[Rfam]
Nucleotides: 086
Stems, first nucleotide, its partner, number of pairs: 001018004006014001008012001027063004032058002
Number, partner (000 for none) and nucleotide at each position: 001018g002017g003016g004015g005000a006014u007000c008012u009000u010000c011000g012008g013000a014006g015004c016003c017002c018001u019000u020000c021000a022000c023000c024000c025000c026000g027063g028062a029061c030060c031000u032058u033057c034000c035000g036000c037000c038000u039000u040000g041000c042000c043000c044000g045000u046000a047000a048000c049000g050000g051000c052000a053000g054000g055000a056000a057033g058032a059000c060030g061029g062028u063027c064000c065000u066000g067000a068000a069000g070000c071000a072000a073000a074000c075000g076000g077000a078000a079000g080000a081000c082000a083000g084000u085000a086000a